Shown here is a 136-nucleotide sequence from Paenibacillus sp. YN15, a member of the family "c-di-AMP riboswitch aptamer (ydaO/yuaA leader)". The literature on the family includes a 2004 paper in Proc Natl Acad Sci U S A by Barrick et al., "New RNA motifs suggest an expanded scope for riboswitches in bacterial genetic control". It scores 73 bits against the family's covariance model. About the family: This family represents a conserved RNA structure found upstream of the ydaO and yuaA genes in Bacillus subtilis and related genes in other bacteria. Taxonomically the source falls in Paenibacillus (Bacteria, Bacillota, Caryophanales, Paenibacillaceae).
RNA sequence: AAAAAUACCGAGCCGAAUUCCCGUUUACGGGAAGCGGGGGAACCAAUUUGGGUGAAUUGAUCUCGCACGAUAGGGAUCAUAGGGAACCUUCAACCGAACCCUACAGCUAACCUCGCAGGCGCCAGGAAGGGGCUUA
Numbered sequence: 001a002a003a004a005a006u007a008c009c010g011a012g013c014c015g016a017a018u019u020c021c022c023g024u025u026u027a028c029g030g031g032a033a034g035c036g037g038g039g040g041a042a043c044c045a046a047u048u049u050g051g052g053u054g055a056a057u058u059g060a061u062c063u064c065g066c067a068c069g070a071u072a073g074g075g076a077u078c079a080u081a082g083g084g085a086a087c088c089u090u091c092a093a094c095c096g097a098a099c100c101c102u103a104c105a106g107c108u109a110a111c112c113u114c115g116c117a118g119g120c121g122c123c124a125g126g127a128a129g130g131g132g133c134u135u136a
Stems, first nucleotide, its partner, number of pairs: 012120003018033006034116006050101003058079007082095002